A member of the RNA family "Small nucleolar RNA SNORA49" from Otolemur garnettii, 137 nucleotides long. Rfam's curators write: The snoRNA ACA49 has no identified RNA target. Rfam 15.1 lists 722 matches to the family in 550 species. The family's RNA type in Rfam is H/ACA-box small nucleolar RNA. Rfam links the family to the GO terms RNA processing and nucleolus. The sequence is in the family's curated seed alignment.
[Rfam]
RNA sequence: CUUCCUCAGCCUGACUCCAGGGGCUUUGUUUUGUCUUGUGAAAUGCCCUGGUAUUGCCUGAGGAUAGACGAGAAAGCACAUGUCCUUCUCUGCCAAGACUCUGUUUUCUUUAAGGGCCUACGCGUUAAGCUGACAGU
Number, nucleotide and partner (000 for none) at each position: 001c000002u000003u064004c063005c062006u061007c060008a059009g058010c000011c056012u000013g000014a000015c000016u000017c051018c050019a049020g048021g047022g046023g044024c000025u042026u041027u040028g039029u038030u000031u000032u000033g000034u000035c000036u000037u000038g029039u028040g027041a026042a025043a000044u023045g000046c022047c021048c020049u019050g018051g017052u000053a000054u000055u000056g011057c000058c009059u008060g007061a006062g005063g004064a003065u000066a000067g000068a000069c000070g000071a000072g000073a000074a000075a131076g130077c129078a000079c000080a126081u000082g000083u000084c000085c000086u000087u000088c116089u115090c114091u113092g000093c000094c000095a110096a109097g108098a107099c000100u000101c000102u000103g000104u000105u000106u000107u098108c097109u096110u095111u000112a000113a091114g090115g089116g088117c000118c000119u000120a000121c000122g000123c000124g000125u000126u080127a000128a000129g077130c076131u075132g000133a000134c000135a000136g000137u000